[Rfam]
RNA: ArsR-gov region gene B
Organism: Jejuibacter calystegiae
RNA sequence: UUAGAUGAAUGCGGUCUCACCCCGGCCAGAGUUACCAGCUUCACACCGGGAAAAUAAAAAAACCGACCUCACCAGUCGGUUUUUUUAU
Numbered sequence: 001u002u003a004g005a006u007g008a009a010u011g012c013g014g015u016c017u018c019a020c021c022c023c024g025g026c027c028a029g030a031g032u033u034a035c036c037a038g039c040u041u042c043a044c045a046c047c048g049g050g051a052a053a054a055u056a057a058a059a060a061a062a063c064c065g066a067c068c069u070c071a072c073c074a075g076u077c078g079g080u081u082u083u084u085u086u087a088u
Stems, first nucleotide, its partner, number of pairs: 021050005029041003057085011